RNA: Group II catalytic intron D1-D4-3
Organism: Bradyrhizobium sp. LMTR 3
RNA sequence: GCCGUCGCGAGGCGGGGUCUGAAGGAAGCGUGGAUCAAAGGUGCGAGCUGAUGAACAAAAACCGGAUAUGAGGCGCAAGCGUCGGACGAGCGGGCGACACAUCGCGAAGUCCAGAUCCAUCAAGGAUGCGAAGCGUAGAUCCGGCGGUUGUGCACCGAAGGCGAUUGAGC
Numbered sequence: 001g002c003c004g005u006c007g008c009g010a011g012g013c014g015g016g017g018u019c020u021g022a023a024g025g026a027a028g029c030g031u032g033g034a035u036c037a038a039a040g041g042u043g044c045g046a047g048c049u050g051a052u053g054a055a056c057a058a059a060a061a062c063c064g065g066a067u068a069u070g071a072g073g074c075g076c077a078a079g080c081g082u083c084g085g086a087c088g089a090g091c092g093g094g095c096g097a098c099a100c101a102u103c104g105c106g107a108a109g110u111c112c113a114g115a116u117c118c119a120u121c122a123a124g125g126a127u128g129c130g131a132a133g134c135g136u137a138g139a140u141c142c143g144g145c146g147g148u149u150g151u152g153c154a155c156c157g158a159a160g161g162c163g164a165u166u167g168a169g170c
Stems, first nucleotide, its partner, number of pairs: 002015005028170002031167002036161001040156006046149005062144006073136003079129005084112004090105004